RNA sequence: UGAAUUAAGUGGAGAAGUAGUCUGUUCACUAUAUUUAUUAAAUAUAAUAAAAUAUUUUGCAAAUACGCACAAAGUGAGAUUCAACUCCUCCAACUUAAUUCA
Dot-bracket structure: ......((((((((..((....(..(((((..........................................))))).)....).).))))).)))......
A member of the RNA family "mir-1175 microRNA precursor family" from Acyrthosiphon pisum, 102 nucleotides long.
The family's consensus secondary structure was predicted with RNAalifold.